[Rfam]
RNA sequence: UUUAUAUGAUGAGAAAAUUAAAUGGCGAUAUUGUAAUUUAUUAUACUUACUUUUAAUUCUUUGAAAGUAUGUAUAUAAAAUAAUGAAGUGAAUGAGCGUCAAAAAAAUGAGUAGUUUUCAAUCUGAUAAAA
Numbered sequence: 001u002u003u004a005u006a007u008g009a010u011g012a013g014a015a016a017a018u019u020a021a022a023u024g025g026c027g028a029u030a031u032u033g034u035a036a037u038u039u040a041u042u043a044u045a046c047u048u049a050c051u052u053u054u055a056a057u058u059c060u061u062u063g064a065a066a067g068u069a070u071g072u073a074u075a076u077a078a079a080a081u082a083a084u085g086a087a088g089u090g091a092a093u094g095a096g097c098g099u100c101a102a103a104a105a106a107a108u109g110a111g112u113a114g115u116u117u118u119c120a121a122u123c124u125g126a127u128a129a130a131a
Stems, first nucleotide, its partner, number of pairs: 004127001011123001025097002029090004036081004042075005048069009
small nucleolar RNA snoR15: a 131-nucleotide RNA sequence from Plasmodium falciparum. Rfam links the family to the GO terms RNA processing and nucleolus. Rfam's curators put it in the seed alignment.